[Rfam]
RNA: c-di-AMP riboswitch aptamer (ydaO/yuaA leader)
RNA sequence: CAUUCUGCAAAACUUCACUUUGUAAGAAUUAAGACUGGAGCGGGGGACCCAACUAAGGGGCGCAUUUCUAGGGAAUCUUAUCUAGAAAAGGACAUCUCUCAGUCCUAGCCCGUCAGCUAACCUCGUCAGCUAUUGAGAGGAGACUG
Numbered sequence: 001c002a003u004u005c006u007g008c009a010a011a012a013c014u015u016c017a018c019u020u021u022g023u024a025a026g027a028a029u030u031a032a033g034a035c036u037g038g039a040g041c042g043g044g045g046g047a048c049c050c051a052a053c054u055a056a057g058g059g060g061c062g063c064a065u066u067u068c069u070a071g072g073g074a075a076u077c078u079u080a081u082c083u084a085g086a087a088a089a090g091g092a093c094a095u096c097u098c099u100c101a102g103u104c105c106u107a108g109c110c111c112g113u114c115a116g117c118u119a120a121c122c123u124c125g126u127c128a129g130c131u132a133u134u135g136a137g138a139g140g141a142g143a144c145u146g
Base pairs, nucleotide, nucleotide: 003039004038005037040126041125042124043123044122045121050057058111059110060109066087067086068085069084070083071082072081090105091104092103093102